RNA sequence: GCACAGUGGUGGACUGAUGACAGCCCUUGUCUGUGGGCCUUUCAUAGUGUGCCAGGGCCAGAGGUGCAUGCAGCCCCAAACCAUUGCCCAACUUCCUCACCAGUGGGCUGUGAACACUGAAGAGGGCUGUACAGUG
Number, nucleotide and partner (000 for none) at each position: 001g058002c057003a000004c055005a000006g052007u051008g050009g000010u000011g000012g000013a000014c000015u047016g000017a045018u044019g043020a042021c000022a040023g039024c036025c035026c000027u000028u000029g000030u000031c000032u000033g000034u000035g025036g024037g000038c000039c023040u022041u000042u020043c019044a018045u017046a000047g015048u000049g000050u008051g007052c006053c000054a000055g004056g000057g002058c001059c000060a000061g000062a000063g000064g000065u000066g000067c000068a000069u000070g000071c129072a128073g127074c126075c125076c124077c000078a000079a000080a000081c000082c119083a118084u000085u000086g000087c000088c000089c110090a109091a000092c107093u106094u105095c000096c000097u000098c000099a000100c000101c000102a000103g000104u000105g094106g093107g092108c000109u090110g089111u000112g000113a000114a000115c000116a000117c000118u083119g082120a000121a000122g000123a000124g076125g075126g074127c073128u072129g071130u000131a000132c000133a000134g000135u000136g000
Small nucleolar RNA SNORA42/SNORA80 family: a 136-nucleotide sequence from Suricata suricatta. Rfam describes the family as follows. The members of this family belong to the H/ACA class of snoRNAs that guide the sites of modification of uridines to pseudouridines. Human ACA42 (SNORA42) was cloned from HeLa cells by immunoprecipitation with anti-GAR1 antibody. Its is predicted to guide the pseudouridylation of residues U109 and U572 of 18S rRNA. ACA42 shares the same host gene with ACA26, ACA46, ACA50. This family also includes mammalian snoRNA ACA67 (SNORA80) which was identified by computational screening and its expression in mouse experimentally verified by Northern blot and primer extension analysis. ACA67 is proposed to guide the pseudouridylation of the same 18S rRNA residues as ACA42. The match comes from Rfam's covariance-model search (77 bits). The organism belongs to Suricata, within Eukaryota. The literature on the family includes a 2006 paper in RNA by Schattner et al., "A computational screen for mammalian pseudouridylation guide H/ACA RNAs". The family has 21 seed sequences and 1,535 matches in Rfam 15.1.